[Rfam]
RNA: Lysine riboswitch aptamer
RNA sequence: AAUUGCUGUAGAGGAGCUUUUAGCAAUAGUAGAUAGUUGAGCAGGCAUGCGACGAUGCUAUCGAAAGGGUAUAAAAGCCGAAAUACAAAGUAAGGCAUUACUUUGUAUUGGUAGAAAUUCACAAUAGUUUUCUACUCUCUGGUGUCAUCCAUUGGUGCUAUAGCUUUA
Numbered sequence: 001a002a003u004u005g006c007u008g009u010a011g012a013g014g015a016g017c018u019u020u021u022a023g024c025a026a027u028a029g030u031a032g033a034u035a036g037u038u039g040a041g042c043a044g045g046c047a048u049g050c051g052a053c054g055a056u057g058c059u060a061u062c063g064a065a066a067g068g069g070u071a072u073a074a075a076a077g078c079c080g081a082a083a084u085a086c087a088a089a090g091u092a093a094g095g096c097a098u099u100a101c102u103u104u105g106u107a108u109u110g111g112u113a114g115a116a117a118u119u120c121a122c123a124a125u126a127g128u129u130u131u132c133u134a135c136u137c138u139c140u141g142g143u144g145u146c147a148u149c150c151a152u153u154g155g156u157g158c159u160a161u162a163g164c165u166u167u168a
Base pairs, nucleotide, nucleotide: 006163007162008161009160010159011158016078017077018076019075020074021073023070024069032062033061034060035059036058037057039056082109083108084107085106086105087104088103089102090101091100092099093098110136111135112134113133114132115131116130117129119127